[Rfam]
RNA sequence: ACUGUGUGGCAGUGUGGUUAGCUGGUUGUGUGCGGUGUACUACAACCACUAGCUGUAUUGCCGAUACAGU
Numbered sequence: 001a002c003u004g005u006g007u008g009g010c011a012g013u014g015u016g017g018u019u020a021g022c023u024g025g026u027u028g029u030g031u032g033c034g035g036u037g038u039a040c041u042a043c044a045a046c047c048a049c050u051a052g053c054u055g056u057a058u059u060g061c062c063g064a065u066a067c068a069g070u
Stems, first nucleotide, its partner, number of pairs: 002069005008062002011059011023048008